Overview
Shown here is a 137-nucleotide RNA from Salarias fasciatus, a member of the family "Small nucleolar RNA SNORA8". The source organism's lineage runs through Eukaryota, Craniata, Neopterygii, Clupeocephala and Salarias. By type it is an H/ACA-box small nucleolar RNA. Rfam 15.1 lists 1,490 matches to the family in 610 species. The family's consensus secondary structure was predicted with RNAfold. From the family's description: ACA8 is a member of the H/ACA class of snoRNA that guide the sites of modification of uridines to pseudouridines.
RNA sequence: AGCACUGUGUGGUAUCUGCAGGCUGCUGCUCCUCCAGCCGCUCUGUUCAAAAGUCAGUGCUACAGCAGUCCAGCAGGGGGCAUCGUUGGUCUCCACACCGCUGUGUCUGGAGUCCUGGUAGACCUGCUGAGACACGC
Numbered sequence: 001a002g003c004a005c006u007g008u009g010u011g012g013u014a015u016c017u018g019c020a021g022g023c024u025g026c027u028g029c030u031c032c033u034c035c036a037g038c039c040g041c042u043c044u045g046u047u048c049a050a051a052a053g054u055c056a057g058u059g060c061u062a063c064a065g066c067a068g069u070c071c072a073g074c075a076g077g078g079g080g081c082a083u084c085g086u087u088g089g090u091c092u093c094c095a096c097a098c099c100g101c102u103g104u105g106u107c108u109g110g111a112g113u114c115c116u117g118g119u120a121g122a123c124c125u126g127c128u129g130a131g132a133c134a135c136g137c
Stems, first nucleotide, its partner, number of pairs: 002060006014054002017051001018046005025038004063126003069120001070118004079107005